[Rfam]
SAM (S-adenosyl methionine) riboswitch aptamer: a 121-nucleotide RNA sequence from Micromonospora lupini.
The family's consensus secondary structure is taken from published work.
The family is grouped with related families in Rfam's "SAM clan".
A search with the family's covariance model found it, with a score of 68 bits.
RNA sequence: CGUCAAGAGUGGUCAGCGUCAAGCCUCCCGGCUUGCUGACCCGGCAACCGCGCCACCCGCGCACGGUGCCCCCGGGGGAAGACCAGGCCGACCGCAAGCCGCGGCACGGCAAGAGCGGGUG
Numbered sequence: 001c002g003u004c005a006a007g008a009g010u011g012g013u014c015a016g017c018g019u020c021a022a023g024c025c026u027c028c029c030g031g032c033u034u035g036c037u038g039a040c041c042c043g044g045c046a047a048c049c050g051c052g053c054c055a056c057c058c059g060c061g062c063a064c065g066g067u068g069c070c071c072c073c074g075g076g077g078g079a080a081g082a083c084c085a086g087g088c089c090g091a092c093c094g095c096a097a098g099c100c101g102c103g104g105c106a107c108g109g110c111a112a113g114a115g116c117g118g119g120u121g
Base pairs, nucleotide, nucleotide: 002083003082004081009042012040013039014038015037016036017035022033023032043070044069045068048066049065050064052062053061087110088109089108090107092104093103094102095101